[Rfam]
RNA sequence: GUUCGUGCUGAAGGCCUGUUUCCUAGGCUACAUACGGGGGACUCGUUCCUUAUCUUCCGCCUAGGGGAAAGUCCCCGGACCAUGGGCAGAGAGUGCCGCGUGCGCAUGCACGUUAGACUCCCCCGCGUCCCACCGAUAGUCCGCCAAGAAGCGAACCCGCCCCGGGGGCGGCAGAGCCGAGCGGCGUGGUGCGGGGCGUCCUCCGUCAGCUCUCAUAGUUACGCAGGCAGCGCGCCCCGGCGCGCCAACCGCACGGGGCUCAUUCUCAGCACGGC
Numbered sequence: 001g002u003u004c005g006u007g008c009u010g011a012a013g014g015c016c017u018g019u020u021u022c023c024u025a026g027g028c029u030a031c032a033u034a035c036g037g038g039g040g041a042c043u044c045g046u047u048c049c050u051u052a053u054c055u056u057c058c059g060c061c062u063a064g065g066g067g068a069a070a071g072u073c074c075c076c077g078g079a080c081c082a083u084g085g086g087c088a089g090a091g092a093g094u095g096c097c098g099c100g101u102g103c104g105c106a107u108g109c110a111c112g113u114u115a116g117a118c119u120c121c122c123c124c125g126c127g128u129c130c131c132a133c134c135g136a137u138a139g140u141c142c143g144c145c146a147a148g149a150a151g152c153g154a155a156c157c158c159g160c161c162c163c164g165g166g167g168g169c170g171g172c173a174g175a176g177c178c179g180a181g182c183g184g185c186g187u188g189g190u191g192c193g194g195g196g197c198g199u200c201c202u203c204c205g206u207c208a209g210c211u212c213u214c215a216u217a218g219u220u221a222c223g224c225a226g227g228c229a230g231c232g233c234g235c236c237c238c239g240g241c242g243c244g245c246c247a248a249c250c251g252c253a254c255g256g257g258g259c260u261c262a263u264u265c266u267c268a269g270c271a272c273g274g275c
Stems, first nucleotide, its partner, number of pairs: 003274009014228006022065007037051005070260002073258004085097004098113006116199001121196006130189004141184004171177002230245006

A member of the RNA family "RNase MRP" from Oryctolagus cuniculus, 275 nucleotides long. RNase MRP is an enzymatically active ribonucleoprotein with two distinct roles in eukaryotes. Taxonomically the source falls in Oryctolagus (Eukaryota, Deuterostomia, Chordata, Craniata). It is one of the family's seed sequences. Clan: RNaseP clan.